[Rfam]
RNA: U8 small nucleolar RNA
RNA sequence: UCGUCAGUGCGGUACAUCCUGACCUGCCCCGCCCUCGGUGCGGGCAGCACGUGAUGAGCGCGGCGUGAUGACGUGCGUGAUUACGUCACCCCGCGGGGCAAGGGGGGCGUGUCCUCACGCAGCAACACCCCCUUGCUCCGGUCACUCUGAC
Number, nucleotide and partner (000 for none) at each position: 001u000002c000003g000004u000005c000006a000007g000008u000009g000010c000011g000012g000013u000014a000015c000016a000017u000018c000019c000020u000021g000022a000023c000024c047025u046026g045027c000028c044029c043030c042031g041032c040033c000034c000035u000036c000037g000038g000039u000040g032041c031042g030043g029044g028045c026046a025047g024048c000049a000050c000051g000052u000053g000054a000055u000056g000057a000058g000059c000060g000061c000062g000063g000064c000065g000066u000067g000068a000069u000070g090071a000072c000073g000074u000075g086076c085077g084078u083079g000080a000081u000082u000083a078084c077085g076086u075087c000088a000089c000090c070091c000092c000093g000094c140095g139096g138097g137098g136099c135100a134101a133102g132103g131104g130105g129106g128107g000108c000109g000110u000111g000112u000113c000114c000115u000116c000117a000118c000119g000120c000121a000122g000123c000124a000125a000126c000127a000128c106129c105130c104131c103132c102133u101134u100135g099136c098137u097138c096139c095140g094141g000142u000143c000144a000145c000146u000147c000148u000149g000150a000151c000